The family of this 192-nucleotide RNA from Ruoffia halotolerans is "6S / SsrS RNA". Lineage of the source: Bacteria > Bacilli > Lactobacillales > Aerococcaceae > Ruoffia. E. coli 6S RNA was the first non coding RNA to be sequenced, but its function was unknown until recently. The family's RNA type in Rfam is non-coding RNA gene. The base pairs follow the family's consensus structure, which is taken from published work. A search with the family's covariance model found it, with a score of 62 bits.
RNA sequence: GGUUCUCUGAGGUGUACGUUGUAUAUAUAUUGUGUGGACCGAACAUUUCUUUUUAUCUUGGGAUCCUAUGAUCUUGUUUCUAUGACAAGCCUUUUACACUUGGAAGUCAGAAAAAGCAAGUGUGGAGCCCACCUGUAAUUACUUGCAGGUUCAAUAACAUAUAUAUACGGAAACGGCACCACCGGAUGCCUU
Numbered sequence: 001g002g003u004u005c006u007c008u009g010a011g012g013u014g015u016a017c018g019u020u021g022u023a024u025a026u027a028u029a030u031u032g033u034g035u036g037g038a039c040c041g042a043a044c045a046u047u048u049c050u051u052u053u054u055a056u057c058u059u060g061g062g063a064u065c066c067u068a069u070g071a072u073c074u075u076g077u078u079u080c081u082a083u084g085a086c087a088a089g090c091c092u093u094u095u096a097c098a099c100u101u102g103g104a105a106g107u108c109a110g111a112a113a114a115a116g117c118a119a120g121u122g123u124g125g126a127g128c129c130c131a132c133c134u135g136u137a138a139u140u141a142c143u144u145g146c147a148g149g150u151u152c153a154a155u156a157a158c159a160u161a162u163a164u165a166u167a168c169g170g171a172a173a174c175g176g177c178a179c180c181a182c183c184g185g186a187u188g189c190c191u192u
Base pairs, nucleotide, nucleotide: 002190004188006186007185008184009183012179013178014177015176017175018174019173031159032158033157034155035153036152037151038150039149040148060130061129062128064126065125066124074119075118076117077116078115079114085107086106090103091102